[Rfam]
RNA sequence: AUCACCCUGCGGUGUACGAGGUCCGUCUGAAGUUUUGAGCCAACACCAAUGUUAAGGGAGCCUGGCCUCUGGAUGUGGAUUGUAAUACUCUACUUAGAGGAAACAUGAAUCAUACAGGAGGGCACCCACCUGUGAGAACAGGUUCAGAAAACUUUGGCGAUUAUCGGCACCAUGGGGUAAUU
Numbered sequence: 001a002u003c004a005c006c007c008u009g010c011g012g013u014g015u016a017c018g019a020g021g022u023c024c025g026u027c028u029g030a031a032g033u034u035u036u037g038a039g040c041c042a043a044c045a046c047c048a049a050u051g052u053u054a055a056g057g058g059a060g061c062c063u064g065g066c067c068u069c070u071g072g073a074u075g076u077g078g079a080u081u082g083u084a085a086u087a088c089u090c091u092a093c094u095u096a097g098a099g100g101a102a103a104c105a106u107g108a109a110u111c112a113u114a115c116a117g118g119a120g121g122g123c124a125c126c127c128a129c130c131u132g133u134g135a136g137a138a139c140a141g142g143u144u145c146a147g148a149a150a151a152c153u154u155u156g157g158c159g160a161u162u163a164u165c166g167g168c169a170c171c172a173u174g175g176g177g178u179a180a181u182u
Stems, first nucleotide, its partner, number of pairs: 002180001004178006011171005017166003033150003036146006056127003060123004067117001070116002073113003082104002088099003

Record summary:
A member of the RNA family "6S / SsrS RNA" from Desulfallas thermosapovorans, 182 nucleotides long. A reference for the family is Wassarman and Storz (2000), "6S RNA regulates E. coli RNA polymerase activity", Cell. E. coli 6S RNA was the first non coding RNA to be sequenced, but its function was unknown until recently. The source organism's lineage runs through Bacteria, Bacillati, Clostridia, Eubacteriales and Desulfallas thermosapovorans.